[Rfam]
RNA sequence: CCCUGACAGCCCCUAAUGGGCUGACACUAGCCACGACAGGAGAGACACAUG
Numbered sequence: 001c002c003c004u005g006a007c008a009g010c011c012c013c014u015a016a017u018g019g020g021c022u023g024a025c026a027c028u029a030g031c032c033a034c035g036a037c038a039g040g041a042g043a044g045a046c047a048c049a050u051g
Stems, first nucleotide, its partner, number of pairs: 002040004007023005